[Rfam]
RNA sequence: GCCGGGCUUGGUAGCGCUUGCCUGUAACUCAAGUGAGGGCAUUAAAGAUGGCUGGACGGUGGACUAUUCCAGGUCGGUUGGUUCUGUUGGUGCGUUAGCUGGCUUGCCCGUUCCAAGUUGCGAGUUGGGCCAUGUGGCUUUAGCGAAAGCUUCGGUCUCAUGGUCCCUAGAGCAGGGGGCACUGCGUAAGGCUGGUUUCACAGAGCUGCGAAAACCCCUCGCUCGUGACAGUGGAAGGAUAACAUGUCGGAGCACUGCAUGGGCCACAUAAACCGCCUGGAAUGUCUCAAUCGAACAAACAUCUUU
Number, nucleotide and partner (000 for none) at each position: 001g040002c039003c038004g023005g022006g021007c020008u000009u000010g017011g000012u000013a000014g000015c000016g000017c010018u000019u000020g007021c006022c005023u004024g000025u000026a000027a000028c037029u036030c035031a000032a000033g000034u000035g030036a029037g028038g003039g002040c001041a000042u000043u000044a306045a305046a304047g303048a302049u301050g300051g000052c000053u297054g296055g000056a000057c293058g292059g000060u289061g288062g286063a285064c284065u000066a000067u281068u000069c280070c279071a278072g277073g276074u275075c000076g274077g273078u272079u271080g265081g264082u263083u262084c261085u259086g258087u257088u000089g000090g255091u254092g253093c252094g000095u000096u000097a000098g000099c250100u249101g248102g247103c246104u000105u244106g243107c000108c238109c237110g000111u236112u235113c234114c233115a232116a000117g229118u228119u227120g226121c225122g224123a223124g222125u221126u000127g166128g165129g164130c163131c162132a161133u160134g159135u000136g157137g156138c155139u154140u000141u000142a151143g150144c149145g000146a000147a000148a000149g144150c143151u142152u000153c000154g139155g138156u137157c136158u000159c134160a133161u132162g131163g130164u129165c128166c127167c172168u000169a000170g000171a000172g167173c000174a219175g218176g217177g216178g215179g000180c000181a000182c000183u212184g000185c210186g209187u208188a000189a000190g000191g000192c203193u202194g201195g000196u000197u000198u000199c000200a000201c194202a193203g192204a000205g000206c000207u000208g187209c186210g185211a000212a183213a000214a000215c178216c177217c176218c175219u174220c000221g125222c124223u123224c122225g121226u120227g119228a118229c117230a000231g000232u115233g114234g113235a112236a111237g109238g108239a000240u000241a000242a000243c106244a105245u000246g103247u102248c101249g100250g099251a000252g093253c092254a091255c090256u000257g087258c086259a085260u000261g084262g083263g082264c081265c080266a000267c000268a000269u000270a000271a079272a078273c077274c076275g074276c073277c072278u071279g070280g069281a067282a000283u000284g064285u063286c062287u000288c061289a060290a000291u000292c058293g057294a000295a000296c054297a053298a000299a000300c050301a049302u048303c047304u046305u045306u044
Rfam assigns this 306-nucleotide RNA from Mikania micrantha to the family "Plant signal recognition particle RNA". The base pairs follow the family's consensus structure, which is taken from published work. It scores 229 bits against the family's covariance model. Lineage of the source: Eukaryota > Streptophytina > Tracheophyta > Asteroideae > Mikania.